[Rfam]
The family of this 147-nucleotide RNA from Priestia veravalensis is "ylbH leader". Lineage of the source: Bacteria > Bacillati > Bacillota > Caryophanales > Priestia. Rfam classes the family as a cis-regulatory leader.
RNA sequence: UAAAAAAAAGCCCUGUAACUACGCAUCACAGGGUCCUUCAAUUAAGCUCAUGCAAUCUCAGUAUAGACUGCAUUGUUGCUUACGAAGGCAAAGGGAGAGGAGAAACCGGAGGAAGAACUUAUGGGGAAACGUAAGCCUUCUCCGCGG
Numbered sequence: 001u002a003a004a005a006a007a008a009a010g011c012c013c014u015g016u017a018a019c020u021a022c023g024c025a026u027c028a029c030a031g032g033g034u035c036c037u038u039c040a041a042u043u044a045a046g047c048u049c050a051u052g053c054a055a056u057c058u059c060a061g062u063a064u065a066g067a068c069u070g071c072a073u074u075g076u077u078g079c080u081u082a083c084g085a086a087g088g089c090a091a092a093g094g095g096a097g098a099g100g101a102g103a104a105a106c107c108g109g110a111g112g113a114a115g116a117a118c119u120u121a122u123g124g125g126g127a128a129a130c131g132u133a134a135g136c137c138u139u140c141u142c143c144g145c146g147g
Base pairs, nucleotide, nucleotide: 011033012032013031014030015029016028018026034095035094036093037092038091043082044081045080046079047078107144108143109142110141112140113139114138115137118135119134120133121132
For this family Rfam cites "New RNA motifs suggest an expanded scope for riboswitches in bacterial genetic control" (Barrick et al., Proc Natl Acad Sci U S A, 2004). This family is a putative regulatory RNA structure that is found upstream of the ylbH gene in B. subtilis and related low GC Gram-positive bacteria. The base pairs follow the family's consensus structure.